Rfam assigns this 106-nucleotide RNA sequence from Corchorus olitorius to the family "MIR319 microRNA precursor family". The base pairs follow the family's consensus structure, which was predicted with RNAalifold. Taxonomically the source falls in Corchorus (Eukaryota, Streptophyta, Streptophytina, eudicotyledons). It scores 76 bits against the family's covariance model.
RNA sequence: UAGAAAUGGGGGCUCCUUUCAGCCUAAAAACAGCUUCAAUUCAAAUAAUAAGGGUUUUGGUACUCUUGUUGAUGAUGUUUUGGACUGAAGGGAGCUCCUAAUUCUU
Numbered sequence: 001u002a003g004a005a006a007u008g009g010g011g012g013c014u015c016c017u018u019u020c021a022g023c024c025u026a027a028a029a030a031c032a033g034c035u036u037c038a039a040u041u042c043a044a045a046u047a048a049u050a051a052g053g054g055u056u057u058u059g060g061u062a063c064u065c066u067u068g069u070u071g072a073u074g075a076u077g078u079u080u081u082g083g084a085c086u087g088a089a090g091g092g093a094g095c096u097c098c099u100a101a102u103u104c105u106u
Stems, first nucleotide, its partner, number of pairs: 007100012021086002024083005